[Rfam]
RNA sequence: AAGGCCGAAUCCGAAAAGCCGGGAAGAGAGUAGGAA
Numbered sequence: 001a002a003g004g005c006c007g008a009a010u011c012c013g014a015a016a017a018g019c020c021g022g023g024a025a026g027a028g029a030g031u032a033g034g035a036a
Stems, first nucleotide, its partner, number of pairs: 003020003010035003

Overview:
DUF805b RNA: a 36-nucleotide RNA. By type it is a cis-regulatory element. The sequence is in the family's curated seed alignment. The family's consensus secondary structure is taken from published work.